[Rfam]
RNA sequence: GGGUGUCCUUGAGCAAUCAGGCUUGGGGCAGGUUUGUUCAGCGCAGGUCGGGCCGCCGGCG
Numbered sequence: 001g002g003g004u005g006u007c008c009u010u011g012a013g014c015a016a017u018c019a020g021g022c023u024u025g026g027g028g029c030a031g032g033u034u035u036g037u038u039c040a041g042c043g044c045a046g047g048u049c050g051g052g053c054c055g056c057c058g059g060c061g
Base pairs, nucleotide, nucleotide: 005029006028007027008026009025012023013022014021042061043060044059046057047056048055